[Rfam]
RNA sequence: CGAGCCGAAGCGGGAGAGUCCCCGUAGCGACGUGAAGGUACGCCGCAGGCGGGGCACCGAAGGAGCAAACUCCCCACCAAUCUCUCAGGUACAGCUACCGCUUCGAGCCA
Number, nucleotide and partner (000 for none) at each position: 001c000002g000003a000004g000005c000006c105007g104008a103009a102010g101011c100012g099013g098014g000015a000016g000017a000018g000019u000020c054021c053022c052023c051024g050025u049026a000027g000028c000029g000030a000031c000032g000033u000034g000035a000036a000037g000038g000039u000040a000041c000042g000043c000044c000045g000046c000047a000048g000049g025050c024051g023052g022053g021054g020055c000056a090057c089058c088059g086060a085061a000062g000063g084064a083065g082066c000067a000068a000069a000070c000071u000072c000073c000074c000075c000076a000077c000078c000079a000080a000081u000082c065083u064084c063085u060086c059087a000088g058089g057090u056091a000092c000093a000094g000095c000096u000097a000098c013099c012100g011101c010102u009103u008104c007105g006106a000107g000108c000109c000110a000
RNA: Glycine riboswitch aptamer